[Rfam]
RNA: Y RNA
RNA sequence: GGCUAGUCUGAAGGUAGUGAGUUAUCUCAAUUGACUGUUCAGUUAGUUGCACAUCAAACUCUUUGUUCUACUCUUUCCCCUCUUUCCACUACCGCACAUGACUAGUCUAAA
Numbered sequence: 001g002g003c004u005a006g007u008c009u010g011a012a013g014g015u016a017g018u019g020a021g022u023u024a025u026c027u028c029a030a031u032u033g034a035c036u037g038u039u040c041a042g043u044u045a046g047u048u049g050c051a052c053a054u055c056a057a058a059c060u061c062u063u064u065g066u067u068c069u070a071c072u073c074u075u076u077c078c079c080c081u082c083u084u085u086c087c088a089c090u091a092c093c094g095c096a097c098a099u100g101a102c103u104a105g106u107c108u109a110a111a
Base pairs, nucleotide, nucleotide: 001107002106003105004104005103006102007101008100010099014095015094016090017089018088019087021085042072045069046068